Rfam assigns this 140-nucleotide RNA sequence from Devosia sp. MC521 to the family "Alphaproteobacterial sRNA BjrC1505".
[Rfam]
RNA sequence: CAACCUGUUAAGUGGCAAUUAAUCUUUGCUCGUUAAGGUCUGGUUAUUCAGAGUUCUUCUGGAUUCUGCAGAGCGAAUUUUCUCUCUGUUUGACGCCUCCCUGUUAACUUCGAGAGCCGUUUUCAUACGGCUCUUUUUUU
Numbered sequence: 001c002a003a004c005c006u007g008u009u010a011a012g013u014g015g016c017a018a019u020u021a022a023u024c025u026u027u028g029c030u031c032g033u034u035a036a037g038g039u040c041u042g043g044u045u046a047u048u049c050a051g052a053g054u055u056c057u058u059c060u061g062g063a064u065u066c067u068g069c070a071g072a073g074c075g076a077a078u079u080u081u082c083u084c085u086c087u088g089u090u091u092g093a094c095g096c097c098u099c100c101c102u103g104u105u106a107a108c109u110u111c112g113a114g115a116g117c118c119g120u121u122u123u124c125a126u127a128c129g130g131c132u133c134u135u136u137u138u139u140u
Stems, first nucleotide, its partner, number of pairs: 001042002004014001020035004047063006071086003075082002092105004112135009